[Rfam]
A member of the RNA family "Rhodo-rpoB RNA", 91 nucleotides long. The family's consensus secondary structure is taken from published work. Rfam's curators put it in the seed alignment. Rfam classes the family as a cis-regulatory element.

Nucleotides: 091
Base pairs, nucleotide, nucleotide: 001043002042003041004040005039010031011030012029013028014027015026016025017024067091068089070085072083073082
Number, partner (000 for none) and nucleotide at each position: 001043c002042g003041a004040u005039c006000g007000g008000g009000a010031g011030g012029c013028c014027u015026c016025u017024g018000g019000u020000g021000g022000g023000a024017c025016a026015g027014g028013g029012g030011c031010c032000g033000g034000g035000a036000a037000u038000g039005g040004a041003u042002c043001g044000c045000a046000c047000c048000c049000g050000c051000c052000g053000u054000c055000u056000c057000g058000u059000a060000u061000g062000g063000g064000u065000a066000c067091g068089c069000c070085g071000c072083u073082g074000u075000a076000g077000c078000c079000c080000g081000u082073c083072g084000a085070c086000c087000a088000u089068g090000g091067c